The family of this 120-nucleotide RNA from Castor canadensis is "Small nucleolar RNA SNORA40". A search with the family's covariance model found it, with a score of 74 bits. Rfam's curators write: The snoRNA ACA 40 belongs to the H/ACA family of snoRNAs and guides the pseudouridylation of 28S rRNA subunit at position U4565. NB This family has a high threshold value to exclude a large number of closely related sequences that do not appear to have conserved H and ACA boxes, and may be pseudogenes.

[Rfam]
RNA sequence: AGCCCUUGUGUGUGCUUUUUUUAACUUGUGGGCAAAGAUAGGUGCAAAAAAUAAAUGCUCUUUUGCAAACUCAGAACUUCUUGUACAGUGUAAGUUUUGAUACGUAUAAGAAGGACUAUG
Numbered sequence: 001a002g003c004c005c006u007u008g009u010g011u012g013u014g015c016u017u018u019u020u021u022u023a024a025c026u027u028g029u030g031g032g033c034a035a036a037g038a039u040a041g042g043u044g045c046a047a048a049a050a051a052u053a054a055a056u057g058c059u060c061u062u063u064u065g066c067a068a069a070c071u072c073a074g075a076a077c078u079u080c081u082u083g084u085a086c087a088g089u090g091u092a093a094g095u096u097u098u099g100a101u102a103c104g105u106a107u108a109a110g111a112a113g114g115a116c117u118a119u120g
Stems, first nucleotide, its partner, number of pairs: 002045002005042005011036001017035002020032001025030001055117001058114002061111005072099008081090001